Notes:
Shown here is a 97-nucleotide sequence from Canis lupus, a member of the family "mir-8813 microRNA precursor family". The family has 2 seed sequences and 307 matches in Rfam 15.1. Lineage of the source: Eukaryota > Opisthokonta > Vertebrata > Mammalia > Canis lupus. Rfam links the family to the GO terms RISC complex and miRNA-mediated post-transcriptional gene silencing.
[Rfam]
RNA sequence: UGGUGACAUGAGGCUCCCCGACUGUCACUCUGUCCCAGCCCCUCCUGGCCCGCAGGGCACAGGCUGAGUUGCAGUAGAGAUUGUGGGGUCCUGACCC
Numbered sequence: 001u002g003g004u005g006a007c008a009u010g011a012g013g014c015u016c017c018c019c020g021a022c023u024g025u026c027a028c029u030c031u032g033u034c035c036c037a038g039c040c041c042c043u044c045c046u047g048g049c050c051c052g053c054a055g056g057g058c059a060c061a062g063g064c065u066g067a068g069u070u071g072c073a074g075u076a077g078a079g080a081u082u083g084u085g086g087g088g089u090c091c092u093g094a095c096c097c
Stems, first nucleotide, its partner, number of pairs: 002096003005090003009086001011082002014079003021075005027069004032064003038058004042052001